[Rfam]
RNA sequence: UCAAAACUACUCGGGAGCCACAGCGUGGCUGAGAGGGAGCACGGAGCUCCGACCGUACUUGAUCUGGGUAAUGCCAGCGUAAGGAAAGGAAGUAGUAUAUGC
Numbered sequence: 001u002c003a004a005a006a007c008u009a010c011u012c013g014g015g016a017g018c019c020a021c022a023g024c025g026u027g028g029c030u031g032a033g034a035g036g037g038a039g040c041a042c043g044g045a046g047c048u049c050c051g052a053c054c055g056u057a058c059u060u061g062a063u064c065u066g067g068g069u070a071a072u073g074c075c076a077g078c079g080u081a082a083g084g085a086a087a088g089g090a091a092g093u094a095g096u097a098u099a100u101g102c
Base pairs, nucleotide, nucleotide: 007089008088012055013054014053017029018028019027020026021025036050037049038048039047040046058083059082060081061080064077065076066075067074
Rfam assigns this 102-nucleotide RNA from Alloscardovia macacae to the family "TPP riboswitch aptamer (THI element)".